[Rfam]
RNA sequence: AAAACAGCAAUGUUUAGGGGGAGGAAGUGGAGUAGCAAAACCGUUGAGCCUACGAACAGAAACUGGAUACGAGGCUAAAUGGCGGGCGAGAUUGCAGAGCAAAUCGAAGCCCAAAAGGUAAACGUAACGCCAAGAGAGUAAAUCCAGAGGCUGUGCGGUGAAAGACUUGUGU
Number, nucleotide and partner (000 for none) at each position: 001a015002a014003a000004a013005c012006a011007g000008c000009a000010a000011u006012g005013u004014u002015u001016a000017g000018g000019g000020g000021g000022a000023g000024g000025a000026a000027g172028u171029g170030g000031a168032g000033u000034a000035g000036c164037a000038a000039a000040a159041c158042c157043g156044u000045u000046g154047a152048g151049c150050c149051u148052a000053c000054g000055a000056a000057c000058a000059g000060a000061a000062a000063c147064u146065g145066g144067a143068u142069a000070c000071g000072a000073g000074g139075c138076u137077a000078a000079a000080u132081g131082g130083c000084g112085g111086g110087c109088g000089a000090g105091a104092u103093u102094g000095c000096a000097g000098a000099g000100c000101a000102a093103a092104u091105c090106g000107a000108a000109g087110c086111c085112c084113a000114a000115a000116a000117g000118g000119u000120a000121a000122a000123c000124g000125u000126a000127a000128c000129g000130c082131c081132a080133a000134g000135a000136g000137a076138g075139u074140a000141a000142a068143u067144c066145c065146a064147g063148a051149g050150g049151c048152u047153g000154u046155g000156c043157g042158g041159u040160g000161a000162a000163a000164g036165a000166c000167u000168u031169g000170u029171g028172u027
Rfam assigns this 172-nucleotide RNA sequence to the family "Group II catalytic intron D1-D4-3".
For this family Rfam cites "The ins and outs of group II introns" (Bonen and Vogel, Trends Genet, 2001).